Group II catalytic intron D1-D4-1: a 79-nucleotide RNA from Anseongella ginsenosidimutans.
Rfam describes the family as follows. Group II introns are found in rRNA, tRNA and mRNA of organelles in fungi, plants and protists, and also in mRNA in bacteria.
The source organism's lineage runs through Bacteria, Sphingobacteriia, Sphingobacteriales, Sphingobacteriaceae and Anseongella.
RNA sequence: CAACCCGGAUGAAGACAUCCGGCUGAGCGAUCAGGAGUCAGCAGAGGCCAUAGUAGUUCUACUAUCCGGAACGAAGGGC
Number, nucleotide and partner (000 for none) at each position: 001c025002a024003a000004c000005c022006c021007g020008g019009a018010u017011g016012a000013a000014g000015a000016c011017a010018u009019c008020c007021g006022g005023c000024u002025g001026a000027g000028c000029g000030a000031u000032c000033a000034g000035g000036a000037g000038u045039c044040a000041g000042c000043a000044g039045a038046g000047g079048c078049c077050a000051u000052a000053g000054u000055a000056g072057u071058u070059c069060u068061a000062c000063u000064a000065u000066c000067c000068g060069g059070a058071a057072c056073g000074a000075a000076g000077g049078g048079c047